[Rfam]
RNA sequence: GCGGUGUGCGGCACCGCGAGACAUCAACCGGGCCUGAGGCCCGAAAGCAGACGGAAGACAGAAA
Dot-bracket structure: (((((((...)))))))...........(((((.....))))).....................
Numbered sequence: 001g002c003g004g005u006g007u008g009c010g011g012c013a014c015c016g017c018g019a020g021a022c023a024u025c026a027a028c029c030g031g032g033c034c035u036g037a038g039g040c041c042c043g044a045a046a047g048c049a050g051a052c053g054g055a056a057g058a059c060a061g062a063a064a
Stems, first nucleotide, its partner, number of pairs: 001017007029043005